[Rfam]
RNA sequence: UGGCACGGUGGACCGGCAUCCUGCUUCUCUUUAAAGAGCAUGGAUUUAUCCGUAACAUGCCACAUUAAUGAAAUGAGUUUUCAGGGUUGCCAACCUCUUGGUUAAGGUUCUGCACACUAUAUUUCUCCUACAAUA
Number, nucleotide and partner (000 for none) at each position: 001u000002g000003g060004c059005a058006c000007g056008g000009u000010g000011g000012a000013c000014c000015g000016g000017c000018a000019u000020c042021c000022u040023g039024c038025u037026u036027c000028u000029c000030u000031u000032u000033a000034a000035a000036g026037a025038g024039c023040a022041u000042g020043g000044a000045u000046u000047u000048a000049u000050c000051c000052g000053u000054a000055a000056c007057a000058u005059g004060c003061c000062a000063c000064a000065u000066u000067a000068a000069u000070g000071a000072a000073a000074u000075g127076a126077g125078u000079u000080u000081u000082c000083a000084g000085g000086g115087u114088u000089g000090c112091c000092a109093a108094c107095c106096u105097c000098u000099u000100g000101g000102u000103u000104a000105a096106g095107g094108u093109u092110c000111u000112g090113c000114a087115c086116a000117c000118u000119a000120u000121a000122u000123u000124u000125c077126u076127c075128c000129u000130a000131c000132a000133a000134u000135a000

Small nucleolar RNA U109: a 135-nucleotide RNA sequence from Sapajus apella. A reference for the family is Gu et al. (2005), "A novel experimental approach for systematic identification of box H/ACA snoRNAs from eukaryotes", Nucleic Acids Res. It scores 62 bits against the family's covariance model.